[Rfam]
RNA: mir-450 microRNA precursor family
Organism: Mus musculus
RNA sequence: ACAGAAUUAUUUUUGCAGUAUGUUCCUGAAUACAUAACAUAAGCGUAUUGGGAACAUUUUGCAUGCAUAAUUUUGUAUC
Number, nucleotide and partner (000 for none) at each position: 001a000002c000003a000004g073005a072006a071007u070008u069009a068010u067011u000012u000013u000014u063015g062016c061017a060018g059019u000020a057021u056022g055023u054024u053025c052026c051027u050028g000029a049030a048031u047032a046033c045034a000035u000036a000037a000038c000039a000040u000041a000042a000043g000044c000045g033046u032047a031048u030049u029050g027051g026052g025053a024054a023055c022056a021057u020058u000059u018060u017061g016062c015063a014064u000065g000066c000067a010068u009069a008070a007071u006072u005073u004074u000075g000076u000077a000078u000079c000